Rfam assigns this 133-nucleotide RNA sequence from Oncorhynchus tshawytscha to the family "Small nucleolar RNA SNORA75".
On this family, see Bachellerie et al., Biochimie 2002: "The expanding snoRNA world".
U23 belongs to the H/ACA class of snoRNAs. snoRNAs bind a number of proteins (including dyskerin, Gar1p and Nop10p in the case of the H/ACA class) to form snoRNP complexes.
The family's consensus secondary structure was predicted with PFOLD.
RNA sequence: GGCUUCUCAUGAGCUCCUCUCUGCCGAUCAGUGGCGUUGUAUGGAUUCGCACGAGAAGUAGAGACUAAUCACAAAUUGAACAGGCAUCCCCUAAUCUCAACAGGAUGUCUGCCUGGCUCUUUGUGAAACAAUU
Number, nucleotide and partner (000 for none) at each position: 001g000002g000003c058004u057005u056006c055007u054008c053009a000010u000011g000012a000013g050014c049015u045016c044017c043018u000019c000020u000021c000022u036023g035024c034025c033026g000027a000028u000029c000030a000031g000032u000033g025034g024035c023036g022037u000038u000039g000040u000041a000042u000043g017044g016045a015046u000047u000048c000049g014050c013051a000052c000053g008054a007055g006056a005057a004058g003059u000060a000061g000062a000063g000064a000065c000066u000067a000068a000069u126070c125071a124072c123073a122074a121075a000076u000077u000078g000079a000080a000081c000082a000083g000084g000085c000086a000087u000088c000089c000090c104091c103092u102093a000094a000095u000096c000097u000098c000099a000100a000101c000102a092103g091104g090105a000106u000107g000108u000109c000110u000111g000112c000113c000114u000115g000116g000117c000118u000119c000120u000121u074122u073123g072124u071125g070126a069127a000128a000129c000130a000131a000132u000133u000